[Rfam]
The record is a 103-nucleotide RNA from Acholeplasma oculi, which matches "Purine riboswitch aptamer" in Rfam. Rfam links the family to the GO term purine nucleobase biosynthetic process.

RNA sequence: AUAGAUGUUUGAUAGUUUUGUCGUAUAAUUGGCUAAAUAUGGUAGCCAGAGUUUCUACCACACCACCGUAAAUUGUGUGACUACGAUGACCAACUUUUCUUUU
Numbered sequence: 001a002u003a004g005a006u007g008u009u010u011g012a013u014a015g016u017u018u019u020g021u022c023g024u025a026u027a028a029u030u031g032g033c034u035a036a037a038u039a040u041g042g043u044a045g046c047c048a049g050a051g052u053u054u055c056u057a058c059c060a061c062a063c064c065a066c067c068g069u070a071a072a073u074u075g076u077g078u079g080a081c082u083a084c085g086a087u088g089a090c091c092a093a094c095u096u097u098u099c100u101u102u103u
Base pairs, nucleotide, nucleotide: 018089019088020087021086022085023084024083025082029049030048031047032046033045034044035043059079060078061077062076063075065073
Background:
The family's consensus secondary structure is taken from published work. Rfam describes the family as follows. Riboswitches are metabolite binding domains within certain messenger RNAs that serve as precision sensors for their corresponding targets. Allosteric rearrangement of mRNA structure is mediated by ligand binding, and this results in modulation of gene expression. The organism belongs to Acholeplasma, within Bacteria.